[Rfam]
RNA sequence: AGGUCAUUUCAAAAAGGGCCUGUGGGACCAAAAUCAGGAGCUUUUAAUGCUGUGACCUAAGACUGAAGUUCUCUGUAGGAUGUAAUAGACAUUCAAUAGUGCUAUGUUUCCUAAGGAGAUAUAAGA
Numbered sequence: 001a002g003g004u005c006a007u008u009u010c011a012a013a014a015a016g017g018g019c020c021u022g023u024g025g026g027a028c029c030a031a032a033a034u035c036a037g038g039a040g041c042u043u044u045u046a047a048u049g050c051u052g053u054g055a056c057c058u059a060a061g062a063c064u065g066a067a068g069u070u071c072u073c074u075g076u077a078g079g080a081u082g083u084a085a086u087a088g089a090c091a092u093u094c095a096a097u098a099g100u101g102c103u104a105u106g107u108u109u110c111c112u113a114a115g116g117a118g119a120u121a122u123a124a125g126a
Base pairs, nucleotide, nucleotide: 002057003056004055005054006053007052014045015044016043017042018041019040021038023037026035027034070119071118072117073116074115077112078111079110080109085105086104087103088102090101091100092099093098

This 126-nucleotide sequence from Phyllostomus discolor belongs to the Rfam family "Small nucleolar RNA SNORA25". The family has 30 seed sequences and 1,129 matches in Rfam 15.1. A search with the family's covariance model found it, with a score of 116 bits. The base pairs follow the family's consensus structure, which was predicted with RNAfold. ACA25 is a member of the H/ACA class of snoRNA that guide the sites of modification of uridines to pseudouridines.